[Rfam]
RNA: tRNA
RNA sequence: GGGCGAUUAACUCAGCGGUAGAGUGUCUCGUUUACACCGAGAGAGUCGGCGGUUCAAGUCCGUCAUCGCCUA
Numbered sequence: 001g002g003g004c005g006a007u008u009a010a011c012u013c014a015g016c017g018g019u020a021g022a023g024u025g026u027c028u029c030g031u032u033u034a035c036a037c038c039g040a041g042a043g044a045g046u047c048g049g050c051g052g053u054u055c056a057a058g059u060c061c062g063u064c065a066u067c068g069c070c071u072a
Stems, first nucleotide, its partner, number of pairs: 001071007010024004026042005048064005